About this RNA:
A member of the RNA family "PyrR binding site" from Litchfieldia salsa, 118 nucleotides long. A search with the family's covariance model found it, with a score of 67 bits. The family has 41 seed sequences and 1,498 matches in Rfam 15.1. Rfam's curators write: This family represents the PyrR binding site and terminator structure. Pairs were carried over by alignment from the consensus structure, which is taken from published work.
[Rfam]
RNA sequence: AGAACCUUUAAAGAACAGUCCCGUGAGGCUGAGAAGGGAACGGAAUAAUGGACGCAUGGGAGAAUUAUGCCUUCAUUUCCAAAACCCCUCUUACCCUUCGUAAGAGGGGUUUUGUGUU
Numbered sequence: 001a002g003a004a005c006c007u008u009u010a011a012a013g014a015a016c017a018g019u020c021c022c023g024u025g026a027g028g029c030u031g032a033g034a035a036g037g038g039a040a041c042g043g044a045a046u047a048a049u050g051g052a053c054g055c056a057u058g059g060g061a062g063a064a065u066u067a068u069g070c071c072u073u074c075a076u077u078u079c080c081a082a083a084a085c086c087c088c089u090c091u092u093a094c095c096c097u098u099c100g101u102a103a104g105a106g107g108g109g110u111u112u113u114g115u116g117u118u
Stems, first nucleotide, its partner, number of pairs: 005037005016031005047077006054070006081113014